Overview:
The record is a 115-nucleotide sequence from Photobacterium lipolyticum, which matches "TPP riboswitch aptamer (THI element)" in Rfam. Taxonomically the source falls in Photobacterium (Bacteria, Pseudomonadota, Gammaproteobacteria, Vibrionales). The base pairs follow the family's consensus structure, which is taken from published work. It scores 68 bits against the family's covariance model. Rfam links the family to the GO term thiamine pyrophosphate binding.
[Rfam]
RNA sequence: CUGUUCUCAUUGGGGAGCCAAUGUUGUUUAGGCAACAAAGGCUGAGAUUGCUGACGCAGAACCCAUUGAACCUGAACCAGGUCAUACUGGCGUAGGAAUUGAGAAAAUAGCCACU
Number, nucleotide and partner (000 for none) at each position: 001c000002u000003g000004u000005u000006c103007u102008c101009a100010u000011u065012g064013g063014g062015g000016a000017g042018c041019c040020a000021a000022u000023g000024u000025u000026g000027u000028u000029u000030a000031g000032g000033c000034a000035a000036c000037a000038a000039a000040g019041g018042c017043u000044g000045a000046g000047a000048u000049u058050g057051c056052u000053g000054a000055c000056g051057c050058a049059g000060a000061a000062c014063c013064c012065a011066u000067u000068g000069a000070a000071c096072c095073u094074g093075a000076a000077c090078c089079a088080g087081g000082u000083c000084a000085u000086a000087c080088u079089g078090g077091c000092g000093u074094a073095g072096g071097a000098a000099u000100u009101g008102a007103g006104a000105a000106a000107a000108u000109a000110g000111c000112c000113a000114c000115u000